Record summary
This 377-nucleotide sequence from Brevundimonas sp. Leaf363 belongs to the Rfam family "Bacterial RNase P class A". The base pairs follow the family's consensus structure, which is taken from published work. Taxonomically the source falls in Brevundimonas (Bacteria, Pseudomonadati, Alphaproteobacteria, Caulobacteraceae).
[Rfam]
RNA sequence: UCAGACGGCCGGGCGGUCGCGGCGGAGCCUGCUUCGUCGAGGAAAGUCCGGGCUCCACGGUGAAAAGGCGGCGGAUAACUUCCGCCCGGGGCGACCCGAGGGAUAGCGCCACAGAAAGCAAACCUCCGACCUCGCGAGGUCGGUAAGGGUGAAAGGGUGGGGUAAGAGCCCACCGCGGACCUGGCGACAGGGACGGCAUGGCAAGCCCCGCCUGGAGCAAGACCGAAUAGGGGCGUCGCGCAGUUUCGGCUGCAGGGCUCACCGCCCGAGGCGCCCGGGUUGGUCGCGAGAACCGGUCAGCAAUGGCCGGUCCAGAGGAAUGAUCGUCGCCGUCCCUCGGGGCGGAACAGAACCCGGCUUACAGGCCGUCUGACGCC
Numbered sequence: 001u002c003a004g005a006c007g008g009c010c011g012g013g014c015g016g017u018c019g020c021g022g023c024g025g026a027g028c029c030u031g032c033u034u035c036g037u038c039g040a041g042g043a044a045a046g047u048c049c050g051g052g053c054u055c056c057a058c059g060g061u062g063a064a065a066a067g068g069c070g071g072c073g074g075a076u077a078a079c080u081u082c083c084g085c086c087c088g089g090g091g092c093g094a095c096c097c098g099a100g101g102g103a104u105a106g107c108g109c110c111a112c113a114g115a116a117a118g119c120a121a122a123c124c125u126c127c128g129a130c131c132u133c134g135c136g137a138g139g140u141c142g143g144u145a146a147g148g149g150u151g152a153a154a155g156g157g158u159g160g161g162g163u164a165a166g167a168g169c170c171c172a173c174c175g176c177g178g179a180c181c182u183g184g185c186g187a188c189a190g191g192g193a194c195g196g197c198a199u200g201g202c203a204a205g206c207c208c209c210g211c212c213u214g215g216a217g218c219a220a221g222a223c224c225g226a227a228u229a230g231g232g233g234c235g236u237c238g239c240g241c242a243g244u245u246u247c248g249g250c251u252g253c254a255g256g257g258c259u260c261a262c263c264g265c266c267c268g269a270g271g272c273g274c275c276c277g278g279g280u281u282g283g284u285c286g287c288g289a290g291a292a293c294c295g296g297u298c299a300g301c302a303a304u305g306g307c308c309g310g311u312c313c314a315g316a317g318g319a320a321u322g323a324u325c326g327u328c329g330c331c332g333u334c335c336c337u338c339g340g341g342g343c344g345g346a347a348c349a350g351a352a353c354c355c356g357g358c359u360u361a362c363a364g365g366c367c368g369u370c371u372g373a374c375g376c377c
Stems, first nucleotide, its partner, number of pairs: 001373010011362001012328007020039008044360003048357005053217004062262001066213005071085005086100001087098004101208002106206002108202003123148002126143007156174006175197001176195002180191004221285004231276006255267004292311008